[Rfam]
RNA sequence: AAAAUUCUUCAGGGCAGGGUGCAAUUCCCGACCGGUGGUAAUAGUCCACGAGCGAAUUUUUUUAAAAUUUGCUGAUAUGGUGUAAUUCCAUAACCGACAGUGAUAUUACAAGUGUAAUAAAGUCUGGAUGGGAGAAGAAUAAA
Numbered sequence: 001a002a003a004a005u006u007c008u009u010c011a012g013g014g015c016a017g018g019g020u021g022c023a024a025u026u027c028c029c030g031a032c033c034g035g036u037g038g039u040a041a042u043a044g045u046c047c048a049c050g051a052g053c054g055a056a057u058u059u060u061u062u063u064a065a066a067a068u069u070u071g072c073u074g075a076u077a078u079g080g081u082g083u084a085a086u087u088c089c090a091u092a093a094c095c096g097a098c099a100g101u102g103a104u105a106u107u108a109c110a111a112g113u114g115u116a117a118u119a120a121a122g123u124c125u126g127g128a129u130g131g132g133a134g135a136a137g138a139a140u141a142a143a
Base pairs, nucleotide, nucleotide: 004140005139006138007137008136009135010134017029018028019027033096034095035049036048037047038046044094045093052072053071054070076092077091078090079089080088098126099125100124
The family of this 143-nucleotide RNA sequence from Clostridium sp. MD294 is "FMN riboswitch aptamer (RFN element)". Pairs were carried over by alignment from the consensus structure, which is taken from published work.